This 299-nucleotide RNA sequence from Amphimedon queenslandica belongs to the Rfam family "Metazoan signal recognition particle RNA".
RNA sequence: GCUGGGCGCAGUGGCGUGUGCCUGUAACUGUAGCUACCUGCAGGGCUGAGGUCUGUAGAUGGUUUCAGGUCGGGACUCCUGGGGGGGUGCUGCUCUAUGUUGAGCGGACGCCCGCACUGGGUUUGGCAUCAAUAUGGGUAUUGCGGAGGAGUCCAGUGAUGUCCAGGUUGUAUAAUGAGAACCGUAUCGGCCCAGGCCCUAGCGGGAGCAGGCAAAAGGCUCCGUACUGAGUGGUAGUGGGAUAACGUCUGUGAAUUCAUUCACCAGCCUGGCCAAUAAUUAAUCAGACCAAACUUUUU
Numbered sequence: 001g002c003u004g005g006g007c008g009c010a011g012u013g014g015c016g017u018g019u020g021c022c023u024g025u026a027a028c029u030g031u032a033g034c035u036a037c038c039u040g041c042a043g044g045g046c047u048g049a050g051g052u053c054u055g056u057a058g059a060u061g062g063u064u065u066c067a068g069g070u071c072g073g074g075a076c077u078c079c080u081g082g083g084g085g086g087g088u089g090c091u092g093c094u095c096u097a098u099g100u101u102g103a104g105c106g107g108a109c110g111c112c113c114g115c116a117c118u119g120g121g122u123u124u125g126g127c128a129u130c131a132a133u134a135u136g137g138g139u140a141u142u143g144c145g146g147a148g149g150a151g152u153c154c155a156g157u158g159a160u161g162u163c164c165a166g167g168u169u170g171u172a173u174a175a176u177g178a179g180a181a182c183c184g185u186a187u188c189g190g191c192c193c194a195g196g197c198c199c200u201a202g203c204g205g206g207a208g209c210a211g212g213c214a215a216a217a218g219g220c221u222c223c224g225u226a227c228u229g230a231g232u233g234g235u236a237g238u239g240g241g242a243u244a245a246c247g248u249c250u251g252u253g254a255a256u257u258c259a260u261u262c263a264c265c266a267g268c269c270u271g272g273c274c275a276a277u278a279a280u281u282a283a284u285c286a287g288a289c290c291a292a293a294c295u296u297u298u299u
Stems, first nucleotide, its partner, number of pairs: 001046003004023007028043003048297005054291002060286005068274007079267004084262003094259001097256002100253001104252007112241002115239005121232006128225002130170004135165010145154003171177002179222002182219002190213003197206003
A reference for the family is Wild et al. (2002), "Towards the structure of the mammalian signal recognition particle", Curr Opin Struct Biol. The family's consensus secondary structure is taken from published work. The family has 91 seed sequences and 383,523 matches in Rfam 15.1. It is annotated as a non-coding RNA gene. Its family is annotated with SRP-dependent cotranslational protein targeting to membrane, signal sequence recognition and signal recognition particle, endoplasmic reticulum targeting in the Gene Ontology.